[Rfam]
RNA: isrG Hfq binding RNA
RNA sequence: CUGCUGCUGCUGCUGUAGCUGCUGCUGUUGCUGCUGUAGCUGCUGCUGUAGCUGCUGCUGUAGCUGUAGCUGCUGUAGCUGCUGCUGUAGCUGUAGCUGCUGCUGUAGCUGCUGCUGCUGUAGCUGCUGCAGCUGUAGCUGCUGCAGCUGUAGCUGCUGCAGCUGUAGCUGCUGCAGCUGUAGCUGCUGCAGCUGUAGCUGCUGCAGCUGUAGCUGCUGUAGCUGCUGCUGUAGCUGUAGCUGCUGUAGCUGCUGUAGCUGUAGCUGCUGCUG
Numbered sequence: 001c002u003g004c005u006g007c008u009g010c011u012g013c014u015g016u017a018g019c020u021g022c023u024g025c026u027g028u029u030g031c032u033g034c035u036g037u038a039g040c041u042g043c044u045g046c047u048g049u050a051g052c053u054g055c056u057g058c059u060g061u062a063g064c065u066g067u068a069g070c071u072g073c074u075g076u077a078g079c080u081g082c083u084g085c086u087g088u089a090g091c092u093g094u095a096g097c098u099g100c101u102g103c104u105g106u107a108g109c110u111g112c113u114g115c116u117g118c119u120g121u122a123g124c125u126g127c128u129g130c131a132g133c134u135g136u137a138g139c140u141g142c143u144g145c146a147g148c149u150g151u152a153g154c155u156g157c158u159g160c161a162g163c164u165g166u167a168g169c170u171g172c173u174g175c176a177g178c179u180g181u182a183g184c185u186g187c188u189g190c191a192g193c194u195g196u197a198g199c200u201g202c203u204g205c206a207g208c209u210g211u212a213g214c215u216g217c218u219g220u221a222g223c224u225g226c227u228g229c230u231g232u233a234g235c236u237g238u239a240g241c242u243g244c245u246g247u248a249g250c251u252g253c254u255g256u257a258g259c260u261g262u263a264g265c266u267g268c269u270g271c272u273g
Stems, first nucleotide, its partner, number of pairs: 006265005012259003017254003024250003027235005033229002037225007060076005066070001077116003081112001085108003089104003093100001117214002120211008129202006136195004141190002144187002147154002156184002162178007240247002